[Rfam]
RNA sequence: GUGGUACUCAAACAAUGGCAGCACUUUUUGUUUUGGAACAAAGUGCCGCCAGGUUUUGAGCAUUAC
Numbered sequence: 001g002u003g004g005u006a007c008u009c010a011a012a013c014a015a016u017g018g019c020a021g022c023a024c025u026u027u028u029u030g031u032u033u034u035g036g037a038a039c040a041a042a043g044u045g046c047c048g049c050c051a052g053g054u055u056u057u058g059a060g061c062a063u064u065a066c
Stems, first nucleotide, its partner, number of pairs: 004063002007060006016051004021046007

Overview
This 66-nucleotide sequence from Cricetulus griseus belongs to the Rfam family "mir-290 microRNA precursor family". For this family Rfam cites "Embryonic stem cell-specific MicroRNAs" (Houbaviy et al., Dev Cell, 2003). Its Rfam clan is "mir-290 clan". Rfam 15.1 lists 565 matches to the family in 128 species.